[Rfam]
RNA sequence: UGCGUGAUGCGGUGCAGAGACUGUCGUGAGCAGCCCGCGUAACCGCCAGGCCGUGCGCGCCCCGUCCAACUGCUGUGCUUAGCGGGUGGACAGUCACGGACG
Numbered sequence: 001u002g003c004g005u006g007a008u009g010c011g012g013u014g015c016a017g018a019g020a021c022u023g024u025c026g027u028g029a030g031c032a033g034c035c036c037g038c039g040u041a042a043c044c045g046c047c048a049g050g051c052c053g054u055g056c057g058c059g060c061c062c063c064g065u066c067c068a069a070c071u072g073c074u075g076u077g078c079u080u081a082g083c084g085g086g087u088g089g090a091c092a093g094u095c096a097c098g099g100a101c102g
Stems, first nucleotide, its partner, number of pairs: 001088003005085001008082001011079007018071002023034002026031001036057005043050002

Overview
The record is a 102-nucleotide RNA sequence from Trypanosoma cruzi, which matches "Small nucleolar RNA TBR2" in Rfam. By type it is a C/D-box small nucleolar RNA. Its family is annotated with RNA processing and nucleolus in the Gene Ontology. TBR4 was one of seventeen snoRNAs identified in Trypanosoma brucei. Rfam 15.1 lists 45 matches to the family in 10 species. A search with the family's covariance model found it, with a score of 62 bits.